[Rfam]
Rfam assigns this 146-nucleotide RNA sequence to the family "skipping-rope RNA".
Rfam's curators put it in the seed alignment.
Nucleotides: 146
Base pairs, nucleotide, nucleotide: 005142006141007140008139011029012028013027014026015025019132020131021130022129031115033108034107035106036105120138121137122136123135124134
Number, partner (000 for none) and nucleotide at each position: 001000u002000a003000g004000c005142a006141c007140u008139g009000a010000g011029g012028u013027c014026g015025g016000a017000a018000a019132u020131g021130g022129c023000u024000c025015c026014c027013g028012a029011c030000c031115c032000u033108c034107c035106u036105u037000u038000g039000u040000a041000u042000g043000a044000g045000a046000a047000u048000g049000g050000u051000a052000c053000a054000a055000g056000c057000g058000u059000c060000u061000g062000c063000c064000u065000a066000u067000g068000a069000g070000g071000c072000u073000a074000u075000a076000u077000a078000g079000a080000u081000a082000a083000u084000g085000c086000a087000u088000g089000a090000g091000u092000u093000c094000c095000g096000a097000c098000a099000a100000u101000c102000c103000g104000c105036a106035a107034g108033g109000u110000a111000a112000c113000c114000u115031g116000a117000u118000a119000u120138g121137c122136a123135g124134g125000a126000u127000a128000c129022g130021u131020c132019g133000c134124c135123c136122u137121g138120u139008c140007a141006g142005u143000a144000a145000a146000u